[Rfam]
RNA sequence: ACAGCAAGUUCUAGGCCAUAGCAGAAAUUCUCGCAGCAUGGCCCUGUCAGAUUCCAGUUCAUCUGCGAACUCUGCU
Numbered sequence: 001a002c003a004g005c006a007a008g009u010u011c012u013a014g015g016c017c018a019u020a021g022c023a024g025a026a027a028u029u030c031u032c033g034c035a036g037c038a039u040g041g042c043c044c045u046g047u048c049a050g051a052u053u054c055c056a057g058u059u060c061a062u063c064u065g066c067g068a069a070c071u072c073u074g075c076u
Stems, first nucleotide, its partner, number of pairs: 014043004020076006027039002048065005
RNA: Mammalian CPEB3 ribozyme
Organism: Alligator sinensis